[Rfam]
RNA sequence: GAGUGCUCACGGGGUCGGUGCAAGUCCGAACCGGCGGUCAUAGUCCGCGAACCUCCCAUCCCGGGAGGCCGAGCAGGUGGAACUCCUGCACCGACGGUGAGAGUCCGGAUGGAAGUGACGCUCCG
Numbered sequence: 001g002a003g004u005g006c007u008c009a010c011g012g013g014g015u016c017g018g019u020g021c022a023a024g025u026c027c028g029a030a031c032c033g034g035c036g037g038u039c040a041u042a043g044u045c046c047g048c049g050a051a052c053c054u055c056c057c058a059u060c061c062c063g064g065g066a067g068g069c070c071g072a073g074c075a076g077g078u079g080g081a082a083c084u085c086c087u088g089c090a091c092c093g094a095c096g097g098u099g100a101g102a103g104u105c106c107g108g109a110u111g112g113a114a115g116u117g118a119c120g121c122u123c124c125g
Stems, first nucleotide, its partner, number of pairs: 003123001005121002007118004016028003030104002032093002034048004043091002052068002073089005095107003
FMN riboswitch aptamer (RFN element): a 125-nucleotide RNA sequence from Agrococcus sp. SGAir0287. Gene Ontology term of the family: FMN binding. Lineage of the source: Bacteria > Actinomycetota > Actinomycetes > Microbacteriaceae > Agrococcus. The base pairs follow the family's consensus structure, which is taken from published work.